[Rfam]
Background: The family of this 104-nucleotide RNA from Staphylococcus argenteus is "Staphylococcus sRNA sau-13". It is one of the family's seed sequences. Rfam classes the family as a small RNA. The literature on the family includes a 2010 paper in J Mol Med (Berl) by Abu-Qatouseh et al., "Identification of differentially expressed small non-protein-coding RNAs in Staphylococcus aureus displaying both the normal and the small-colony variant phenotype". The base pairs follow the family's consensus structure, which was predicted with mfold.
RNA sequence: CCGGUAAUAUCGUUGACAUGUGCUGAUUUAUCUAUAGAAGCACCUUCGACCAUUAAAAAGAAUCCUUUUUUAUUAUGUUCUAAUUUACUAAGUGCACUUUGUUG
Numbered sequence: 001c002c003g004g005u006a007a008u009a010u011c012g013u014u015g016a017c018a019u020g021u022g023c024u025g026a027u028u029u030a031u032c033u034a035u036a037g038a039a040g041c042a043c044c045u046u047c048g049a050c051c052a053u054u055a056a057a058a059a060g061a062a063u064c065c066u067u068u069u070u071u072a073u074u075a076u077g078u079u080c081u082a083a084u085u086u087a088c089u090a091a092g093u094g095c096a097c098u099u100u101g102u103u104g
Stems, first nucleotide, its partner, number of pairs: 004076006012050005019042003026035002055070006084094001
Dot-bracket structure: ...((((((..(((((..(((....((......))....)))...)))))....((((((....)))))))))))).......(.........)..........